[Rfam]
Source information
Shown here is an 82-nucleotide RNA sequence from Carya illinoinensis, a member of the family "Small nucleolar RNA Z155". The match comes from Rfam's covariance-model search (55 bits). Rfam classes the family as a C/D-box small nucleolar RNA. Rfam 15.1 lists 429 matches to the family in 196 species.

RNA sequence: CAUUGACGUGAUGAUACCCUAUUCGGAAAAUACAAAGAUGUCCGCUAUAGAAAAAUUUCAGACUACAAUUAUCUGAUCAAUG
Numbered sequence: 001c002a003u004u005g006a007c008g009u010g011a012u013g014a015u016a017c018c019c020u021a022u023u024c025g026g027a028a029a030a031u032a033c034a035a036a037g038a039u040g041u042c043c044g045c046u047a048u049a050g051a052a053a054a055a056u057u058u059c060a061g062a063c064u065a066c067a068a069u070u071a072u073c074u075g076a077u078c079a080a081u082g
Stems, first nucleotide, its partner, number of pairs: 001082006